[Rfam]
Nucleotides: 115
Base pairs, nucleotide, nucleotide: 003113004112005111006110007109008108009107010106017029018028019027031095032094033085034084035049036048037047038046044083045082052061053060054059065081066080067079068078069077087098088097089096
Number, partner (000 for none) and nucleotide at each position: 001000g002000u003113u004112u005111a006110u007109c008108u009107u010106c011000a012000g013000g014000g015000c016000a017029g018028g019027g020000u021000g022000a023000a024000a025000u026000u027019c028018c029017u030000g031095a032094c033085c034084g035049g036048u037047g038046g039000u040000a041000a042000u043000a044083g045082u046038c047037c048036a049035c050000g051000a052061g053060c054059u055000g056000u057000u058000a059054a060053g061052c062000u063000g064000a065081a066080c067079u068078g069077g070000u071000g072000a073000a074000a075000u076000u077069c078068c079067a080066g081065u082045a083044c084034c085033g086000a087098c088097g089096g090000u091000a092000u093000a094032g095031u096089c097088c098087g099000g100000a101000u102000g103000a104000g105000a106010g107009a108008a109007g110006a111005u112004g113003a114000a115000g

Description: A member of the RNA family "FMN riboswitch aptamer (RFN element)" from Orenia metallireducens, 115 nucleotides long. The family's consensus secondary structure is taken from published work. The source organism's lineage runs through Bacteria, Bacillati, Halanaerobiales, Halobacteroidaceae and Orenia. A search with the family's covariance model found it, with a score of 122 bits. Rfam links the family to the GO term FMN binding.